Notes: This 45-nucleotide sequence from Marinovum algicola belongs to the Rfam family "Guanidine-II riboswitch aptamer (mini-ykkC)". The literature on the family includes a 2007 paper in Nucleic Acids Res by Weinberg et al., "Identification of 22 candidate structured RNAs in bacteria using the CMfinder comparative genomics pipeline". The base pairs follow the family's consensus structure, which is taken from published work. Rfam describes the family as follows. Simpler in structure and has fewer highly conserved nucleotide positions than the ykkC-yxkD leader.

RNA sequence: GCGAGGACGACCUCCCCAGAACGGACAAUUUCCGGGACGACCCGG
Number, nucleotide and partner (000 for none) at each position: 001g016002c000003g014004a013005g012006g011007a000008c000009g000010a000011c006012c005013u004014c003015c000016c001017c000018a000019g000020a000021a000022c000023g000024g000025a000026c000027a000028a000029u000030u000031u000032c045033c044034g043035g042036g041037a000038c000039g000040a000041c036042c035043c034044g033045g032